Rfam assigns this 96-nucleotide sequence from Candidatus Enterococcus clewellii to the family "THF (Tetrahydrofolate) riboswitch aptamer".
Pairs were carried over by alignment from the consensus structure, which is taken from published work.
A reference for the family is Trausch and Batey (2014), "A disconnect between high-affinity binding and efficient regulation by antifolates and purines in the tetrahydrofolate riboswitch", Chem Biol.
NCBI's taxonomy places the organism under Bacteria, Bacillati, Bacilli, Lactobacillales, Enterococcus.
RNA sequence: UACAGAGUAGAAGAUAAAGCGUUAAGUGCUACGGGGAUGGGAUGUCGCCCUGUGGACGAAGGAGAAAUCCGCGGUUUUAUUUUCGCAUUCGCUGCA
Numbered sequence: 001u002a003c004a005g006a007g008u009a010g011a012a013g014a015u016a017a018a019g020c021g022u023u024a025a026g027u028g029c030u031a032c033g034g035g036g037a038u039g040g041g042a043u044g045u046c047g048c049c050c051u052g053u054g055g056a057c058g059a060a061g062g063a064g065a066a067a068u069c070c071g072c073g074g075u076u077u078u079a080u081u082u083u084c085g086c087a088u089u090c091g092c093u094g095c096a
Stems, first nucleotide, its partner, number of pairs: 001096001003094003010084010020073003026057002029055008040090005061070003